Notes
Rfam assigns this 69-nucleotide sequence from Canis lupus to the family "mir-208 microRNA precursor family". The base pairs follow the family's consensus structure, which was predicted with RNAalifold. A reference for the family is Lagos-Quintana et al. (2003), "New microRNAs from mouse and human", RNA. It is one of the family's seed sequences. The source organism's lineage runs through Eukaryota, Euteleostomi, Theria, Canis and Canis lupus. Its family is annotated with miRNA-mediated post-transcriptional gene silencing and RISC complex in the Gene Ontology. The family has 29 seed sequences and 563 matches in Rfam 15.1.
[Rfam]
RNA sequence: ACGCAUGAGCUUUUGGCUCGGGUUAUACCUGAUGCUCACGUAUAAGACGAGCAAAAAGCUUGUUGGUCA
Numbered sequence: 001a002c003g004c005a006u007g008a009g010c011u012u013u014u015g016g017c018u019c020g021g022g023u024u025a026u027a028c029c030u031g032a033u034g035c036u037c038a039c040g041u042a043u044a045a046g047a048c049g050a051g052c053a054a055a056a057a058g059c060u061u062g063u064u065g066g067u068c069a
Stems, first nucleotide, its partner, number of pairs: 001067002005063001007061008016052001019049002023045006